This 102-nucleotide sequence from Pigmentiphaga litoralis belongs to the Rfam family "SAH (S-adenosyl-L-homocysteine) riboswitch aptamer". A search with the family's covariance model found it, with a score of 58 bits. Lineage of the source: Bacteria > Pseudomonadati > Pseudomonadota > Burkholderiales > Pigmentiphaga.
[Rfam]
RNA sequence: CCUCCUGAGGAGCGUUGCGACGGGUUCAUCCGCCAGGCUCAGGAAUCGAUCAGACCCCGGCAUCCUUGCCGGUGGGGUCUGCCGCAACGGCGCUCACCCAUA
Numbered sequence: 001c002c003u004c005c006u007g008a009g010g011a012g013c014g015u016u017g018c019g020a021c022g023g024g025u026u027c028a029u030c031c032g033c034c035a036g037g038c039u040c041a042g043g044a045a046u047c048g049a050u051c052a053g054a055c056c057c058c059g060g061c062a063u064c065c066u067u068g069c070c071g072g073u074g075g076g077g078u079c080u081g082c083c084g085c086a087a088c089g090g091c092g093c094u095c096a097c098c099c100a101u102a
Stems, first nucleotide, its partner, number of pairs: 003044006021032004